[Rfam]
RNA sequence: AGAACUCUAUUCAAUCCGAAGCUUUACGUUUAGUACGUGAAAGGUUUAUGUAGGAAGAAUGGAGUUUU
Numbered sequence: 001a002g003a004a005c006u007c008u009a010u011u012c013a014a015u016c017c018g019a020a021g022c023u024u025u026a027c028g029u030u031u032a033g034u035a036c037g038u039g040a041a042a043g044g045u046u047u048a049u050g051u052a053g054g055a056a057g058a059a060u061g062g063a064g065u066u067u068u
Base pairs, nucleotide, nucleotide: 001068002067003066004065005064006063007062008061009060010059011058012057015055016054017053023041024040025039026038027037028036029035
RNA: DUF3800-VIII RNA